Shown here is a 48-nucleotide RNA from Sulfitobacter undariae, a member of the family "SAM/SAH riboswitch aptamer".
A reference for the family is Weickhmann et al. (2019), "The structure of the SAM/SAH-binding riboswitch", Nucleic Acids Res.
Rfam links the family to the GO terms S-adenosylmethionine metabolic process and regulation of gene expression.
The organism belongs to Sulfitobacter, within Bacteria.

[Rfam]
RNA sequence: GUUGCACCACAACGGCUUCCUGACGUGGUGCUUUAAUUCAUUGGAGCA
Numbered sequence: 001g002u003u004g005c006a007c008c009a010c011a012a013c014g015g016c017u018u019c020c021u022g023a024c025g026u027g028g029u030g031c032u033u034u035a036a037u038u039c040a041u042u043g044g045a046g047c048a
Stems, first nucleotide, its partner, number of pairs: 004031007013022002015047003019044002